[Rfam]
RNA sequence: AAGAAUUCGAAGGAGCUCCCUUCAGUCCAAGCAUAGAGAAAGAGAGAUCAAAAGAAGUAUCUCCCGCAUCAUUCACACAAUCACAAACAGUAGCAAAUAGUUUAAUUAACAUUUCAUGUACUGAGUGUUUGAAUGAAUGAGUCGGCAGAUACUUCAAUCCCUUCUUUUUUCUUAUUAUCCAUGAGUGGGCUGAAGGAAGCUCUUUCUUACUCUCAU
Numbered sequence: 001a002a003g004a005a006u007u008c009g010a011a012g013g014a015g016c017u018c019c020c021u022u023c024a025g026u027c028c029a030a031g032c033a034u035a036g037a038g039a040a041a042g043a044g045a046g047a048u049c050a051a052a053a054g055a056a057g058u059a060u061c062u063c064c065c066g067c068a069u070c071a072u073u074c075a076c077a078c079a080a081u082c083a084c085a086a087a088c089a090g091u092a093g094c095a096a097a098u099a100g101u102u103u104a105a106u107u108a109a110c111a112u113u114u115c116a117u118g119u120a121c122u123g124a125g126u127g128u129u130u131g132a133a134u135g136a137a138u139g140a141g142u143c144g145g146c147a148g149a150u151a152c153u154u155c156a157a158u159c160c161c162u163u164c165u166u167u168u169u170u171c172u173u174a175u176u177a178u179c180c181a182u183g184a185g186u187g188g189g190c191u192g193a194a195g196g197a198a199g200c201u202c203u204u205u206c207u208u209a210c211u212c213u214c215a216u
Base pairs, nucleotide, nucleotide: 013202014201015200016199017198019196020195023192024191025190026189027188028187029186036179061148062147064145065144066143070139071138072137073136078131079130080129
RNA: MIR159 microRNA precursor family